[Rfam]
RNA sequence: UAGCAUAAUCAAGGCGAGGGAACUCGGCAAAUUAGCCCUGUAACUUCGGGAGAAGGGGUGCCAGUAGAGAGAUCUACUGGUCGCAGUGACAAGCGAACUCCGACUGUUUAAUAAAAACAUAGGUCUCUGCUAGUUCGAAAGGAUGUGUAUAGAGGCCGAAGCCUGCCCAGUGUCGGCAUCUGAAAUUCUGUUUCAACGGAACGAAGGACCGAUAAACGGCGGGGGUAACUAUGACCCUCUUAAGGUAGCGUAAUACCUUGUCGCUUAAUUGGCGACUUGCAUGAAGGCUCAACGAGAGUUCGACUGUCCCCGCCUUGACGCUAGUGAAAUCAAUCUGUCUGGUGCACAAUCCAGACC
Numbered sequence: 001u002a003g004c005a006u007a008a009u010c011a012a013g014g015c016g017a018g019g020g021a022a023c024u025c026g027g028c029a030a031a032u033u034a035g036c037c038c039u040g041u042a043a044c045u046u047c048g049g050g051a052g053a054a055g056g057g058g059u060g061c062c063a064g065u066a067g068a069g070a071g072a073u074c075u076a077c078u079g080g081u082c083g084c085a086g087u088g089a090c091a092a093g094c095g096a097a098c099u100c101c102g103a104c105u106g107u108u109u110a111a112u113a114a115a116a117a118c119a120u121a122g123g124u125c126u127c128u129g130c131u132a133g134u135u136c137g138a139a140a141g142g143a144u145g146u147g148u149a150u151a152g153a154g155g156c157c158g159a160a161g162c163c164u165g166c167c168c169a170g171u172g173u174c175g176g177c178a179u180c181u182g183a184a185a186u187u188c189u190g191u192u193u194c195a196a197c198g199g200a201a202c203g204a205a206g207g208a209c210c211g212a213u214a215a216a217c218g219g220c221g222g223g224g225g226u227a228a229c230u231a232u233g234a235c236c237c238u239c240u241u242a243a244g245g246u247a248g249c250g251u252a253a254u255a256c257c258u259u260g261u262c263g264c265u266u267a268a269u270u271g272g273c274g275a276c277u278u279g280c281a282u283g284a285a286g287g288c289u290c291a292a293c294g295a296g297a298g299u300u301c302g303a304c305u306g307u308c309c310c311c312g313c314c315u316u317g318a319c320g321c322u323a324g325u326g327a328a329a330u331c332a333a334u335c336u337g338u339c340u341g342g343u344g345c346a347c348a349a350u351c352c353a354g355a356c357c
Stems, first nucleotide, its partner, number of pairs: 001323004009318008018309003035059005044049001060081009082086001094302007101294002105119003122157008130147001133144004160289004165220003170217002172213005179208003186201005221239006240244001260276006338355005
RNA: Archaeal large subunit ribosomal RNA, nucleotides 1722 to 2078
Organism: Candidatus Methanoplasma termitum